[Rfam]
RNA sequence: UGUAUUGUAAUCAUGUACACUUUUAAAAUUUUUUAGUGGACCAUAAACAAAUGCCUAUUAUCUAUCCUCUUUUGCAACCUAGAACUCAUUGUCCAGUACGAGUUUUUGUAUAAGAUGGAAUAUU
Numbered sequence: 001u002g003u004a005u006u007g008u009a010a011u012c013a014u015g016u017a018c019a020c021u022u023u024u025a026a027a028a029u030u031u032u033u034u035a036g037u038g039g040a041c042c043a044u045a046a047a048c049a050a051a052u053g054c055c056u057a058u059u060a061u062c063u064a065u066c067c068u069c070u071u072u073u074g075c076a077a078c079c080u081a082g083a084a085c086u087c088a089u090u091g092u093c094c095a096g097u098a099c100g101a102g103u104u105u106u107u108g109u110a111u112a113a114g115a116u117g118g119a120a121u122a123u124u
Base pairs, nucleotide, nucleotide: 002054003053004052005051006050015041016040018038019037020036021035027032064121065120067118068117070115071114072113073112074111081106082105083104084103085102086101087100089098
RNA: Small nucleolar RNA SNORA40